[Rfam]
RNA sequence: GAAGCAGGAACCCGGCACCGCUGGCGCGGGUCAGACCGGGACCGCCGCCGGGCAACCGGCGGCUGCC
Numbered sequence: 001g002a003a004g005c006a007g008g009a010a011c012c013c014g015g016c017a018c019c020g021c022u023g024g025c026g027c028g029g030g031u032c033a034g035a036c037c038g039g040g041a042c043c044g045c046c047g048c049c050g051g052g053c054a055a056c057c058g059g060c061g062g063c064u065g066c067c
Stems, first nucleotide, its partner, number of pairs: 011040005018029004044063008

A member of the RNA family "Transposase-2 RNA", 67 nucleotides long. The base pairs follow the family's consensus structure, which is taken from published work.